This 140-nucleotide RNA sequence from Xenopus tropicalis belongs to the Rfam family "Small nucleolar RNA SNORA8". Clan: SNORA8 clan. It is annotated as an H/ACA-box small nucleolar RNA. About the family: ACA8 is a member of the H/ACA class of snoRNA that guide the sites of modification of uridines to pseudouridines.

[Rfam]
RNA sequence: AGCACUGGAUGGUAUCUGCACCCAAUGGCAUAUACCUGUUGUGGUGUUCAAUAGGCAGUGCUACAGUAACUCGGCAAUUGGCAUCGUUGGUUUUAAGGCUUUUCUAUGCUUUAAAUCCUGGUUUUUCUGCUGAUACAAAU
Numbered sequence: 001a002g003c004a005c006u007g008g009a010u011g012g013u014a015u016c017u018g019c020a021c022c023c024a025a026u027g028g029c030a031u032a033u034a035c036c037u038g039u040u041g042u043g044g045u046g047u048u049c050a051a052u053a054g055g056c057a058g059u060g061c062u063a064c065a066g067u068a069a070c071u072c073g074g075c076a077a078u079u080g081g082c083a084u085c086g087u088u089g090g091u092u093u094u095a096a097g098g099c100u101u102u103u104c105u106a107u108g109c110u111u112u113a114a115a116u117c118c119u120g121g122u123u124u125u126u127c128u129g130c131u132g133a134u135a136c137a138a139a140u
Stems, first nucleotide, its partner, number of pairs: 002061006015054001018047005024040005064129003068125002071121004080110005